Small nucleolar RNA SNORD115: an 81-nucleotide sequence from Gulo gulo. The family's RNA type in Rfam is C/D-box small nucleolar RNA. Rfam links the family to the GO terms RNA processing and nucleolus. A search with the family's covariance model found it, with a score of 75 bits. NCBI's taxonomy places the organism under Eukaryota, Dipnotetrapodomorpha, Theria, Guloninae, Gulo. For this family Rfam cites "Identification of brain-specific and imprinted small nucleolar RNA genes exhibiting an unusual genomic organization" (Cavaille et al., Proc Natl Acad Sci U S A, 2000).
RNA sequence: GGGUCAAUGAUGAGAACUCAUAUGGUCUCAAAGGACGAUGAUGACCUACAUAUCAUGCUCAAUAGGAUUCUGCUGAGGUCC
Numbered sequence: 001g002g003g004u005c006a007a008u009g010a011u012g013a014g015a016a017c018u019c020a021u022a023u024g025g026u027c028u029c030a031a032a033g034g035a036c037g038a039u040g041a042u043g044a045c046c047u048a049c050a051u052a053u054c055a056u057g058c059u060c061a062a063u064a065g066g067a068u069u070c071u072g073c074u075g076a077g078g079u080c081c
Stems, first nucleotide, its partner, number of pairs: 001081004005075002008072002